[Rfam]
RNA: Small nucleolar SNORD12/SNORD106
Organism: Chelonoidis abingdonii
RNA sequence: GCUGGUGCACGUGAUGACUGAAGCUUUUUUCCCCAUCAGAGCGACAGUGUUGAUUUCGCUACUCUAAGCCAGAUUGUGUCUGAUGCACCAGU
Numbered sequence: 001g002c003u004g005g006u007g008c009a010c011g012u013g014a015u016g017a018c019u020g021a022a023g024c025u026u027u028u029u030u031c032c033c034c035a036u037c038a039g040a041g042c043g044a045c046a047g048u049g050u051u052g053a054u055u056u057c058g059c060u061a062c063u064c065u066a067a068g069c070c071a072g073a074u075u076g077u078g079u080c081u082g083a084u085g086c087a088c089c090a091g092u
Stems, first nucleotide, its partner, number of pairs: 001092009